[Rfam]
RNA sequence: ACUUCCAGAGCCGGAACGAAAAGUUGUUUGAAAUUUGUGUGAGAGAUCGCGGAAUUUUCGAAAACUUUUGGCUAGUGGUCGUGAUGUUGUGUUUGCAAUUGAUCUGACACUUUUCAGAUCUGGUAGCUUAGCUGCCCUUUUAAUUCCUGUAGAUUUAUCCUGUCUGUCCAUAGUGAUUUAGUAGCACCGCAAAUUGCGGUGCUUUUUUUU
Numbered sequence: 001a002c003u004u005c006c007a008g009a010g011c012c013g014g015a016a017c018g019a020a021a022a023g024u025u026g027u028u029u030g031a032a033a034u035u036u037g038u039g040u041g042a043g044a045g046a047u048c049g050c051g052g053a054a055u056u057u058u059c060g061a062a063a064a065c066u067u068u069u070g071g072c073u074a075g076u077g078g079u080c081g082u083g084a085u086g087u088u089g090u091g092u093u094u095g096c097a098a099u100u101g102a103u104c105u106g107a108c109a110c111u112u113u114u115c116a117g118a119u120c121u122g123g124u125a126g127c128u129u130a131g132c133u134g135c136c137c138u139u140u141u142a143a144u145u146c147c148u149g150u151a152g153a154u155u156u157a158u159c160c161u162g163u164c165u166g167u168c169c170a171u172a173g174u175g176a177u178u179u180a181g182u183a184g185c186a187c188c189g190c191a192a193a194u195u196g197c198g199g200u201g202c203u204u205u206u207u208u209u210u
Base pairs, nucleotide, nucleotide: 009073010072011071012070015069016068021067022066023065024064025063028061029060030059031058032057033056035054101120102119103118104117105116106115107114122136123135124134125133126132127131153182154181155180183203184202185201186200187199188198189197190196